Bacterial RNase P class A: a 383-nucleotide RNA from Devosia crocina. The source organism's lineage runs through Bacteria, Pseudomonadota, Alphaproteobacteria, Hyphomicrobiales and Devosia. The match comes from Rfam's covariance-model search (297 bits). The family's RNA type in Rfam is ribozyme. Ribonuclease P (RNase P) is a ubiquitous endoribonuclease, found in archaea, bacteria and eukarya as well as chloroplasts and mitochondria. The family's consensus secondary structure is taken from published work.
RNA sequence: CCAGUUGACCGGGUGGCCGCUGGCAGUGGGGUAACCUGCUGCGAGAGGAAAGUCCGGGCUCCUUCGAAACACGGUGACGGCUAACGGCCGCCGGGGGCGACCCCAGGGAAAGUGCCACAGAAAGCAAACCGCCUCGGCUUGCCGGGGUAAGGGUGAAAGGGUGCGGUAAGAGCGCACCGGGUGUCUGGCGACAGAGACCGCACGGUAAACCCCACCGGGAGCAAGACCAAAUAGGGAUGACGCGGGGCUCGCCCCAGCCAGUUUUGAGGCCAGUCAUCCGGGUUGGUUGCAUGAGCGUCCUGGCAACAGGCGCCACAGAUGAAUGGUCACCACGUCGCGCUCGCGCGGCCUUACAGAACCCGGCUUAUAGGUCAACUGGCGUC
Numbered sequence: 001c002c003a004g005u006u007g008a009c010c011g012g013g014u015g016g017c018c019g020c021u022g023g024c025a026g027u028g029g030g031g032u033a034a035c036c037u038g039c040u041g042c043g044a045g046a047g048g049a050a051a052g053u054c055c056g057g058g059c060u061c062c063u064u065c066g067a068a069a070c071a072c073g074g075u076g077a078c079g080g081c082u083a084a085c086g087g088c089c090g091c092c093g094g095g096g097g098c099g100a101c102c103c104c105a106g107g108g109a110a111a112g113u114g115c116c117a118c119a120g121a122a123a124g125c126a127a128a129c130c131g132c133c134u135c136g137g138c139u140u141g142c143c144g145g146g147g148u149a150a151g152g153g154u155g156a157a158a159g160g161g162u163g164c165g166g167u168a169a170g171a172g173c174g175c176a177c178c179g180g181g182u183g184u185c186u187g188g189c190g191a192c193a194g195a196g197a198c199c200g201c202a203c204g205g206u207a208a209a210c211c212c213c214a215c216c217g218g219g220a221g222c223a224a225g226a227c228c229a230a231a232u233a234g235g236g237a238u239g240a241c242g243c244g245g246g247g248c249u250c251g252c253c254c255c256a257g258c259c260a261g262u263u264u265u266g267a268g269g270c271c272a273g274u275c276a277u278c279c280g281g282g283u284u285g286g287u288u289g290c291a292u293g294a295g296c297g298u299c300c301u302g303g304c305a306a307c308a309g310g311c312g313c314c315a316c317a318g319a320u321g322a323a324u325g326g327u328c329a330c331c332a333c334g335u336c337g338c339g340c341u342c343g344c345g346c347g348g349c350c351u352u353a354c355a356g357a358a359c360c361c362g363g364c365u366u367a368u369a370g371g372u373c374a375a376c377u378g379g380c381g382u383c
Stems, first nucleotide, its partner, number of pairs: 001379010011368001012331007020045002023042006050366003054363005059221004072217005078090004092106001093104004107212002112210002114206003129152002131148007160178006179201001180199003184195004225288004235279006295314001299310004